[Rfam]
RNA sequence: UUUGGGAGAUGAUGAUGAAUGCAUUUAUCAGAUGCUACUGUUUUAAGGUGGCUUUGCUGAUUAAAAUACAGAAUUUGCACGUCAAUCUGAUUCCUAA
Numbered sequence: 001u002u003u004g005g006g007a008g009a010u011g012a013u014g015a016u017g018a019a020u021g022c023a024u025u026u027a028u029c030a031g032a033u034g035c036u037a038c039u040g041u042u043u044u045a046a047g048g049u050g051g052c053u054u055u056g057c058u059g060a061u062u063a064a065a066a067u068a069c070a071g072a073a074u075u076u077g078c079a080c081g082u083c084a085a086u087c088u089g090a091u092u093c094c095u096a097a
Base pairs, nucleotide, nucleotide: 001097002096004094005093006092007091